The record is a 54-nucleotide RNA sequence from Channa argus, which matches "UnaL2 LINE 3' element" in Rfam. Rfam's curators write: The eel long interspersed element (LINE) UnaL2 and its partner short interspersed element (SINE) share a conserved 3' tail containing a stem-loop that is critical for their retrotransposition. Presumably, the first step of retrotransposition is the recognition of their 3' tails by UnaL2-encoded reverse transcriptase. The solution structure of a 17-nucleotide RNA derived from the 3' tail of UnaL2 was determined by NMR. It scores 65 bits against the family's covariance model. Taxonomically the source falls in Channa (Eukaryota, Opisthokonta, Craniata, Clupeocephala).
[Rfam]
RNA sequence: UUGUAUCCCAGUUGUAUGUCGCUUUGGAUAAAAGCGUCUGCUAAAUGACUUAAU
Dot-bracket structure: ............((((...((((((.....))))))..))).)...........
Numbered sequence: 001u002u003g004u005a006u007c008c009c010a011g012u013u014g015u016a017u018g019u020c021g022c023u024u025u026g027g028a029u030a031a032a033a034g035c036g037u038c039u040g041c042u043a044a045a046u047g048a049c050u051u052a053a054u
Stems, first nucleotide, its partner, number of pairs: 013043001014041003020036006